[Rfam]
RNA: small nucleolar RNA snoR135
RNA sequence: AUUGCAGGAUAGUGUGUAUCGGUGUUAUGCCCUCCUAAGAUGGAUUUCUUGCCGAAAGUGUUUCCUGCUACAGUAAUUUCGGGGAAAAUGGGCAGUUGAGUUAAACCCUAGUCUAUUGGGUAUCUCAACAAUCAUUUUCCUCAUACUU
Numbered sequence: 001a002u003u004g005c006a007g008g009a010u011a012g013u014g015u016g017u018a019u020c021g022g023u024g025u026u027a028u029g030c031c032c033u034c035c036u037a038a039g040a041u042g043g044a045u046u047u048c049u050u051g052c053c054g055a056a057a058g059u060g061u062u063u064c065c066u067g068c069u070a071c072a073g074u075a076a077u078u079u080c081g082g083g084g085a086a087a088a089u090g091g092g093c094a095g096u097u098g099a100g101u102u103a104a105a106c107c108c109u110a111g112u113c114u115a116u117u118g119g120g121u122a123u124c125u126c127a128a129c130a131a132u133c134a135u136u137u138u139c140c141u142c143a144u145a146c147u148u
Base pairs, nucleotide, nucleotide: 004068005067006066007065008064009062014045015044017042018041019040081142082141083140084139085138086137087136088135089134090133091132095129096128097127098126